[Rfam]
RNA sequence: ACGAUAUUCCGCUGAUAGGUUAUAGACUAUAUAUGAAUAUUUG
Numbered sequence: 001a002c003g004a005u006a007u008u009c010c011g012c013u014g015a016u017a018g019g020u021u022a023u024a025g026a027c028u029a030u031a032u033a034u035g036a037a038u039a040u041u042u043g
Base pairs, nucleotide, nucleotide: 003041004040005039006038007037008036009035013033014032015030016029017028018027
Shown here is a 43-nucleotide RNA from Jeotgalibaca dankookensis, a member of the family "Ribosomal protein L19 leader".
For this family Rfam cites "Diverse mechanisms for regulating ribosomal protein synthesis in Escherichia coli" (Zengel and Lindahl, Prog Nucleic Acid Res Mol Biol, 1994).
The match comes from Rfam's covariance-model search (38 bits).
This family is a putative r-protein leader autoregulatory structure found in B. subtilis and other low-GC Gram-positive bacteria. It is located in the 5' untranslated regions of mRNAs encoding ribosomal protein L19 (rplS).
Pairs were carried over by alignment from the consensus structure, which was predicted with CMfinder.